[Rfam]
A member of the RNA family "Connexin-43 internal ribosome entry site (IRES)" from Mystacornis crossleyi, 192 nucleotides long. On this family, see Schiavi et al., FEBS Lett 1999: "Connexin43 mRNA contains a functional internal ribosome entry site". A search with the family's covariance model found it, with a score of 115 bits. From the family's description: This family represents the connexin-43 internal ribosome entry site (IRES) which allows cap independent translation during conditions such as heat shock and stress.
RNA sequence: AACUUUUACAAGGUAUCAGCACUUUUCUUUCAUUAGUGGGAAAGGAAGGAUGAAAAAUACAAAACAGCAGUAGACUUUUAAAGUUUAAAUAGACAGGUCUGAGUGCCUGAACGUGCUCUUCCAUUUUAGUUUAACCCUCUAAAGAAUACUCUGAUCCAUUUUCACUGCUGAUCAGCAAGGGUAAGUUGAAAG
Numbered sequence: 001a002a003c004u005u006u007u008a009c010a011a012g013g014u015a016u017c018a019g020c021a022c023u024u025u026u027c028u029u030u031c032a033u034u035a036g037u038g039g040g041a042a043a044g045g046a047a048g049g050a051u052g053a054a055a056a057a058u059a060c061a062a063a064a065c066a067g068c069a070g071u072a073g074a075c076u077u078u079u080a081a082a083g084u085u086u087a088a089a090u091a092g093a094c095a096g097g098u099c100u101g102a103g104u105g106c107c108u109g110a111a112c113g114u115g116c117u118c119u120u121c122c123a124u125u126u127u128a129g130u131u132u133a134a135c136c137c138u139c140u141a142a143a144g145a146a147u148a149c150u151c152u153g154a155u156c157c158a159u160u161u162u163c164a165c166u167g168c169u170g171a172u173c174a175g176c177a178a179g180g181g182u183a184a185g186u187u188g189a190a191a192g
Base pairs, nucleotide, nucleotide: 003019004018007015008014009013029146030145031144033142034141035140036139038137039136040135041132042131043130049125050124051123052122056120057119072100073099074098075097076096077095101116103114104113105112157185160181161180162179165175166174167173